[Rfam]
RNA sequence: CAAGUAGAUCGCCUUAUCGCUGUCCUGUCCCAAUUGCUAUUGGGACGGGAUGGAGGAAAGUCCGAACACCAUAGUGCAAUCAUAGUGGCUAACGGCCACCCACCGUGAGGUGAGGAAAAGUGCAACAGAAAGCAAGUACAGGUCAUGCUGUAGUGAAACCAGGUAAACUCUAUGUGGUGCAAUGUCAUGUAAACUAACGUUGACCUGCCUGUCAUCGAUUAUUUGAUGGAGGCAGUCGGGAGCGUGCACGCGCGAUUGUUAGAGGGUAGACAGCUAAAGUUUGCUGGUAACAGUAAACGCAGAUAAAUGAUGAGGGCUUUUCUUUUUUAGGAUUUAGAUUCUAGAAAAUGAAACGUACAGAAUUCGGCUUAUAGAUUUGCUUACUCA
Numbered sequence: 001c002a003a004g005u006a007g008a009u010c011g012c013c014u015u016a017u018c019g020c021u022g023u024c025c026u027g028u029c030c031c032a033a034u035u036g037c038u039a040u041u042g043g044g045a046c047g048g049g050a051u052g053g054a055g056g057a058a059a060g061u062c063c064g065a066a067c068a069c070c071a072u073a074g075u076g077c078a079a080u081c082a083u084a085g086u087g088g089c090u091a092a093c094g095g096c097c098a099c100c101c102a103c104c105g106u107g108a109g110g111u112g113a114g115g116a117a118a119a120g121u122g123c124a125a126c127a128g129a130a131a132g133c134a135a136g137u138a139c140a141g142g143u144c145a146u147g148c149u150g151u152a153g154u155g156a157a158a159c160c161a162g163g164u165a166a167a168c169u170c171u172a173u174g175u176g177g178u179g180c181a182a183u184g185u186c187a188u189g190u191a192a193a194c195u196a197a198c199g200u201u202g203a204c205c206u207g208c209c210u211g212u213c214a215u216c217g218a219u220u221a222u223u224u225g226a227u228g229g230a231g232g233c234a235g236u237c238g239g240g241a242g243c244g245u246g247c248a249c250g251c252g253c254g255a256u257u258g259u260u261a262g263a264g265g266g267u268a269g270a271c272a273g274c275u276a277a278a279g280u281u282u283g284c285u286g287g288u289a290a291c292a293g294u295a296a297a298c299g300c301a302g303a304u305a306a307a308u309g310a311u312g313a314g315g316g317c318u319u320u321u322c323u324u325u326u327u328u329a330g331g332a333u334u335u336a337g338a339u340u341c342u343a344g345a346a347a348a349u350g351a352a353a354c355g356u357a358c359a360g361a362a363u364u365c366g367g368c369u370u371a372u373a374g375a376u377u378u379g380c381u382u383a384c385u386c387a
Stems, first nucleotide, its partner, number of pairs: 002382009011372001012315007020053014058370003062367005067179004074249004081174004085099005100114001101112004115170002120168002122164002183272004194262005242253004279298008
RNA: Bacterial RNase P class A
Organism: Subsaximicrobium wynnwilliamsii